Description: This 115-nucleotide RNA from Rhizobium sp. SEMIA4064 belongs to the Rfam family "Alphaproteobacterial ar15". Rfam links the family to the GO term protein binding. The family's RNA type in Rfam is small RNA.
RNA sequence: AGCUGAUGCACAUGGUGGCUUUUCCUCCCAGUUCCACCGCAUUGGCUGUUCCCCUCUGGAGGUUUUUUAACCUUCAUACCUAUAGGGCCCUGGUUAUUACCGGUGGCCCUUUUUU
Numbered sequence: 001a002g003c004u005g006a007u008g009c010a011c012a013u014g015g016u017g018g019c020u021u022u023u024c025c026u027c028c029c030a031g032u033u034c035c036a037c038c039g040c041a042u043u044g045g046c047u048g049u050u051c052c053c054c055u056c057u058g059g060a061g062g063u064u065u066u067u068u069a070a071c072c073u074u075c076a077u078a079c080c081u082a083u084a085g086g087g088c089c090c091u092g093g094u095u096a097u098u099a100c101c102g103g104u105g106g107c108c109c110u111u112u113u114u115u
Base pairs, nucleotide, nucleotide: 001047002046003045004044005043007041008040009039015037016036017035018034057076058075059074060073061072062071063070084110085109086108087107088106089105090103091102092101093100

Source information:
Pairs were carried over by alignment from the consensus structure. The match comes from Rfam's covariance-model search (114 bits).